Shown here is a 157-nucleotide RNA sequence from Paramagnetospirillum magnetotacticum, a member of the family "6S / SsrS RNA". By type it is a non-coding RNA gene. Rfam's curators write: E. coli 6S RNA was the first non coding RNA to be sequenced, but its function was unknown until recently. The source organism's lineage runs through Bacteria, Pseudomonadota, Alphaproteobacteria, Rhodospirillales and Paramagnetospirillum. The base pairs follow the family's consensus structure, which is taken from published work.
RNA sequence: GCGGGGCUGCAGAGUUCGUCAGGAGAACUUUCCCCGGGGCCUUAUCGACUCCCUCGGGAGCUGUCACUGGCCUCGUCCGUGGACUUGGCCAACACGGCGCCCACCUACUCUGUAGGUAUCCCGGGAUCGACACUCCAACGGCUCACGUGGCUCCGCA
Numbered sequence: 001g002c003g004g005g006g007c008u009g010c011a012g013a014g015u016u017c018g019u020c021a022g023g024a025g026a027a028c029u030u031u032c033c034c035c036g037g038g039g040c041c042u043u044a045u046c047g048a049c050u051c052c053c054u055c056g057g058g059a060g061c062u063g064u065c066a067c068u069g070g071c072c073u074c075g076u077c078c079g080u081g082g083a084c085u086u087g088g089c090c091a092a093c094a095c096g097g098c099g100c101c102c103a104c105c106u107a108c109u110c111u112g113u114a115g116g117u118a119u120c121c122c123g124g125g126a127u128c129g130a131c132a133c134u135c136c137a138a139c140g141g142c143u144c145a146c147g148u149g150g151c152u153c154c155g156c157a
Stems, first nucleotide, its partner, number of pairs: 002155009012144004017140003031126004036121003039117003056102003060098005068091005075084001